[Rfam]
RNA: Lysine riboswitch aptamer
Organism: Fusobacterium varium
RNA sequence: AAGAAAGAUAGAGGCGCAGAAAACAUAAGUAUGAUCAUUUAGUCUGGCAGACAUUGAGAUGAUCAAAAAGGGAAUUCUGCCGAAAUGAAAGAAAAGGCCAAAAUUCUUUUGUUGGUAGUAUAAAAAAUAUUUAUACUACUGUCAUUGAUUAUUUCAGUGGAGUGCUAUCUGUGAU
Numbered sequence: 001a002a003g004a005a006a007g008a009u010a011g012a013g014g015c016g017c018a019g020a021a022a023a024c025a026u027a028a029g030u031a032u033g034a035u036c037a038u039u040u041a042g043u044c045u046g047g048c049a050g051a052c053a054u055u056g057a058g059a060u061g062a063u064c065a066a067a068a069a070g071g072g073a074a075u076u077c078u079g080c081c082g083a084a085a086u087g088a089a090a091g092a093a094a095a096g097g098c099c100a101a102a103a104u105u106c107u108u109u110u111g112u113u114g115g116u117a118g119u120a121u122a123a124a125a126a127a128u129a130u131u132u133a134u135a136c137u138a139c140u141g142u143c144a145u146u147g148a149u150u151a152u153u154u155c156a157g158u159g160g161a162g163u164g165c166u167a168u169c170u171g172u173g174a175u
Base pairs, nucleotide, nucleotide: 006170007169008168009167010166011165016080017079018078019077020076021075024072032065033064034063035062036061037060038059039058084113085112086111087110088109089108090107091106092105093104114140115139116138117137118136119135120134121133122132123131124130142160143159144158145157146156147155148154